Shown here is a 44-nucleotide sequence from Halopseudomonas bauzanensis, a member of the family "Guanidine-II riboswitch aptamer (mini-ykkC)". It scores 42 bits against the family's covariance model. Its family is annotated with regulation of gene expression in the Gene Ontology. The family has 72 seed sequences and 1,589 matches in Rfam 15.1. NCBI's taxonomy places the organism under Bacteria, Pseudomonadota, Pseudomonadales, Pseudomonadaceae, Halopseudomonas.
RNA sequence: GUGAGGACGACCUCACCGCUAUUAUUCAAACGGGGACGGCCCCA
Numbered sequence: 001g002u003g004a005g006g007a008c009g010a011c012c013u014c015a016c017c018g019c020u021a022u023u024a025u026u027c028a029a030a031c032g033g034g035g036a037c038g039g040c041c042c043c044a
Stems, first nucleotide, its partner, number of pairs: 001016006032043004